[Rfam]
RNA sequence: UGUGCAGGACUUGUCUAGACAGGCAUACAAAACUUGUGUUAUUUGCCACCUGAACUUUCCUGCUAGAUCAAUUUAAGAAAAAUGGGCAGUUGAGUUAGGCCAGGUGUCUUAUGGUUUCCUCAACAAUCAUUUUUCUCAUAUUU
Numbered sequence: 001u002g003u004g005c006a007g008g009a010c011u012u013g014u015c016u017a018g019a020c021a022g023g024c025a026u027a028c029a030a031a032a033c034u035u036g037u038g039u040u041a042u043u044u045g046c047c048a049c050c051u052g053a054a055c056u057u058u059c060c061u062g063c064u065a066g067a068u069c070a071a072u073u074u075a076a077g078a079a080a081a082a083u084g085g086g087c088a089g090u091u092g093a094g095u096u097a098g099g100c101c102a103g104g105u106g107u108c109u110u111a112u113g114g115u116u117u118c119c120u121c122a123a124c125a126a127u128c129a130u131u132u133u134u135c136u137c138a139u140a141u142u143u
Stems, first nucleotide, its partner, number of pairs: 004063006076136010089124006
About this RNA
Shown here is a 143-nucleotide sequence from Miscanthus lutarioriparius, a member of the family "small nucleolar RNA snoR135". NCBI's taxonomy places the organism under Eukaryota, Euphyllophyta, Spermatophyta, Petrosaviidae, Miscanthus. For this family Rfam cites "Mining small RNA sequencing data: a new approach to identify small nucleolar RNAs in Arabidopsis" (Chen and Wu, Nucleic Acids Res, 2009). Rfam 15.1 lists 837 matches to the family in 220 species. The family's RNA type in Rfam is H/ACA-box small nucleolar RNA. Rfam links the family to the GO terms RNA processing and nucleolus.